[Rfam]
RNA sequence: UAAUUCAAUCUAAUACUCCUUCGUAUAUCAUCGAUAAUAUGGAUCGAAAGUUUCUACCGAAUCACCGUAAAUGAUUUGACUAUGAAGGCAAAUUUGGUUCAG
Numbered sequence: 001u002a003a004u005u006c007a008a009u010c011u012a013a014u015a016c017u018c019c020u021u022c023g024u025a026u027a028u029c030a031u032c033g034a035u036a037a038u039a040u041g042g043a044u045c046g047a048a049a050g051u052u053u054c055u056a057c058c059g060a061a062u063c064a065c066c067g068u069a070a071a072u073g074a075u076u077u078g079a080c081u082a083u084g085a086a087g088g089c090a091a092a093u094u095u096g097g098u099u100c101a102g
Base pairs, nucleotide, nucleotide: 018088019087020086021085022084023083024082025081031047032046033045034044035043058078059077060076061075062074063073064072
Notes:
The record is a 102-nucleotide sequence from Mesobacillus foraminis, which matches "Purine riboswitch aptamer" in Rfam. The match comes from Rfam's covariance-model search (85 bits). The base pairs follow the family's consensus structure, which is taken from published work. Its Rfam clan is "Purine riboswitches". Rfam's curators write: Riboswitches are metabolite binding domains within certain messenger RNAs that serve as precision sensors for their corresponding targets.